[Rfam]
RNA sequence: GACAGAGUAGAUAAUAUGCGUUAAGUGUCAAAGGAUGGAACGUAGCCUUUGAACGAAAAGUGUAUACUUGCGACAUAUUAUCGCGUUCGCUGUC
Numbered sequence: 001g002a003c004a005g006a007g008u009a010g011a012u013a014a015u016a017u018g019c020g021u022u023a024a025g026u027g028u029c030a031a032a033g034g035a036u037g038g039a040a041c042g043u044a045g046c047c048u049u050u051g052a053a054c055g056a057a058a059a060g061u062g063u064a065u066a067c068u069u070g071c072g073a074c075a076u077a078u079u080a081u082c083g084c085g086u087u088c089g090c091u092g093u094c
Stems, first nucleotide, its partner, number of pairs: 001094005010082009019072003025054002028052007038088005058069004
Rfam assigns this 94-nucleotide RNA sequence from Keratinibaculum paraultunense to the family "THF (Tetrahydrofolate) riboswitch aptamer". Rfam's curators write: Tetrahydrofolate (THF) riboswitch was first reported for Ames et al. as an RNA motif in 5' untranslated (5'-UTR)regions of folate transport and biosynthesis genes in Firmicutes genomes. Rfam 15.1 lists 747 matches to the family in 747 species. The source organism's lineage runs through Bacteria, Bacillota, Tissierellia, Tissierellales and Keratinibaculum. It scores 82 bits against the family's covariance model.